[Rfam]
RNA sequence: GGGUCCCCCACGGACGCGCCGGUUCCUGCGCGCCAGCCAAACCUGCCUGCCGACUGCUCGCUACGUGUUGUUGGCC
Number, nucleotide and partner (000 for none) at each position: 001g000002g000003g015004u014005c013006c012007c000008c000009c000010a000011c000012g006013g005014a004015c003016g000017c000018g000019c000020c000021g034022g033023u032024u000025c030026c000027u000028g000029c000030g025031c000032g023033c022034c021035a000036g000037c000038c000039a000040a000041a000042c000043c000044u000045g000046c000047c074048u073049g072050c000051c070052g069053a068054c000055u000056g000057c000058u000059c000060g000061c000062u000063a000064c000065g000066u000067g000068u053069u052070g051071u000072u049073g048074g047075c000076c000
RNA: Xanthomonas sRNA sX9